Record summary
Shown here is an 82-nucleotide sequence from Xanthomonas campestris, a member of the family "Glycine riboswitch aptamer". Gene Ontology term of the family: glycine biosynthetic process. NCBI's taxonomy places the organism under Bacteria, Pseudomonadota, Lysobacterales, Lysobacteraceae, Xanthomonas campestris pv. campestris. Rfam's curators put it in the seed alignment.

RNA sequence: GUAACACGGUGGGAGAAGCGGCACUGCCGCUGCCGAAGGCGCAACAGCCCGUAAUCGCUCAGGCCCGAUACCAUCUUCAACA
Numbered sequence: 001g002u003a004a005c006a007c008g009g010u011g012g013g014a015g016a017a018g019c020g021g022c023a024c025u026g027c028c029g030c031u032g033c034c035g036a037a038g039g040c041g042c043a044a045c046a047g048c049c050c051g052u053a054a055u056c057g058c059u060c061a062g063g064c065c066c067g068a069u070a071c072c073a074u075c076u077u078c079a080a081c082a
Stems, first nucleotide, its partner, number of pairs: 006077001008075005018030004032064003035060002039058003045051001